[Rfam]
RNA sequence: UCUGUUUGCUUUCUUGGACGUUUCCUCCCUAAACUUGGCGGCACGCAAGUGCCGCCAUUUUUUUUGAUCCAU
Numbered sequence: 001u002c003u004g005u006u007u008g009c010u011u012u013c014u015u016g017g018a019c020g021u022u023u024c025c026u027c028c029c030u031a032a033a034c035u036u037g038g039c040g041g042c043a044c045g046c047a048a049g050u051g052c053c054g055c056c057a058u059u060u061u062u063u064u065u066g067a068u069c070c071a072u
Base pairs, nucleotide, nucleotide: 008019010017011016037056038055039054040053041052042051043050044049
RNA: Makes More Granules Regulator RNA (mmgR)